Nucleotides: 109
Base pairs, nucleotide, nucleotide: 002032003031004029005028006027007026008025010024011023012022013021078105079104080103081101082100083099084098085097088095089094
Number, partner (000 for none) and nucleotide at each position: 001000a002032a003031g004029g005028c006027g007026g008025c009000a010024u011023c012022c013021a014000c015000a016000a017000a018000a019000a020000c021013u022012g023011g024010a025008g026007c027006u028005g029004c030000a031003c032002u033000g034000u035000g036000u037000a038000a039000c040000c041000u042000g043000a044000g045000u046000g047000a048000u049000u050000u051000g052000a053000a054000c055000a056000a057000a058000c059000u060000a061000a062000g063000c064000a065000a066000a067000g068000a069000a070000g071000c072000c073000a074000u075000u076000u077000u078105c079104u080103g081101c082100u083099u084098c085097g086000a087000g088095c089094c090000u091000u092000u093000g094089g095088g096000a097085c098084g099083g100082a101081g102000a103080c104079a105078g106000a107000g108000c109000a